[Rfam]
RNA sequence: GCGGUGUGGUAGGUAAUUGCUUUUAUAUAAAAGAGGAAAGUCCGAGCUACAUAAGACUAGGAUUCCAUUUAACAAAUGGCUAGGGCAACCUAAGGGAAAGUGCAACAGAAAUAUACCGCCAUUUUAAAUUUGCCAGAUAAACUCCUACGUAGAUUCUAUAAUGGUAAGGGUGAAAAGGCAGGGUAAGAGCCUACCGACUUUUUGGCAACAAUAAGUGCUAUGCAAACCCAAUCCGUAGCAAGAAUAGCAGGUUAGAAAGUCUUAAAUUUUUAGCUAUUCGCUUAAGCAAUAUUGCGAAAUAUUGCAUAGAUAAAUAAUUACCUAAACAGAACUCGGCUUACAGCCACACCGAUUAA
Numbered sequence: 001g002c003g004g005u006g007u008g009g010u011a012g013g014u015a016a017u018u019g020c021u022u023u024u025a026u027a028u029a030a031a032a033g034a035g036g037a038a039a040g041u042c043c044g045a046g047c048u049a050c051a052u053a054a055g056a057c058u059a060g061g062a063u064u065c066c067a068u069u070u071a072a073c074a075a076a077u078g079g080c081u082a083g084g085g086c087a088a089c090c091u092a093a094g095g096g097a098a099a100g101u102g103c104a105a106c107a108g109a110a111a112u113a114u115a116c117c118g119c120c121a122u123u124u125u126a127a128a129u130u131u132g133c134c135a136g137a138u139a140a141a142c143u144c145c146u147a148c149g150u151a152g153a154u155u156c157u158a159u160a161a162u163g164g165u166a167a168g169g170g171u172g173a174a175a176a177g178g179c180a181g182g183g184u185a186a187g188a189g190c191c192u193a194c195c196g197a198c199u200u201u202u203u204g205g206c207a208a209c210a211a212u213a214a215g216u217g218c219u220a221u222g223c224a225a226a227c228c229c230a231a232u233c234c235g236u237a238g239c240a241a242g243a244a245u246a247g248c249a250g251g252u253u254a255g256a257a258a259g260u261c262u263u264a265a266a267u268u269u270u271u272a273g274c275u276a277u278u279c280g281c282u283u284a285a286g287c288a289a290u291a292u293u294g295c296g297a298a299a300u301a302u303u304g305c306a307u308a309g310a311u312a313a314a315u316a317a318u319u320a321c322c323u324a325a326a327c328a329g330a331a332c333u334c335g336g337c338u339u340a341c342a343g344c345c346a347c348a349c350c351g352a353u354u355a356a
Base pairs, nucleotide, nucleotide: 002351003350004349005348006347007346008345009344010343012322013321014320015319016318017317018316020033021032022031023030024029038339039338040337042336043335044334045333046332047238048237049236050235060234061233062232063231064230065079066078067077068076069075080094081092082091083090084089095229096228100227101226102223103222104221116169117168118165119164120163121162122161123160125158126157177195178194180192181191182190196218197216198215199214200213202211203210204209242279243278244277245276256270257269258268259267260266286305287304288303289302290301291300292299293298